Shown here is a 70-nucleotide sequence from Gymnodraco acuticeps, a member of the family "Selenocysteine insertion sequence 1".
About the family: The incorporation of selenocysteine into a protein sequence is directed by an in-frame UGA codon (usually a stop codon) within the coding region of the mRNA. Selenoprotein mRNAs contain a conserved secondary structure in the 3' UTR that is required for the distinction of UGA stop from UGA selenocysteine. The selenocysteine insertion sequence (SECIS) is around 60 nt in length and adopts a hairpin structure which is sufficiently well-defined and conserved to act as a computational screen for selenoprotein genes.
Its family is annotated with selenocysteine incorporation in the Gene Ontology.
By type it is a cis-regulatory element.
Taxonomically the source falls in Gymnodraco (Eukaryota, Clupeocephala, Perciformes, Bathydraconidae).
RNA sequence: CUUGUUUUAAUGAUGACUUGUCCUAAAAACUCCUUGUUGAGAAGUUGGGUCAUGUCUGACAGCAGACAAG
Number, nucleotide and partner (000 for none) at each position: 001c070002u069003u068004g067005u066006u000007u000008u000009a000010a000011u000012g000013a000014u000015g056016a055017c054018u000019u052020g051021u000022c049023c048024u047025a000026a000027a000028a000029a000030c041031u040032c039033c000034u000035u000036g000037u000038u000039g032040a031041g030042a000043a000044g000045u000046u000047g024048g023049g022050u000051c020052a019053u000054g017055u016056c015057u000058g000059a000060c000061a000062g000063c000064a000065g000066a005067c004068a003069a002070g001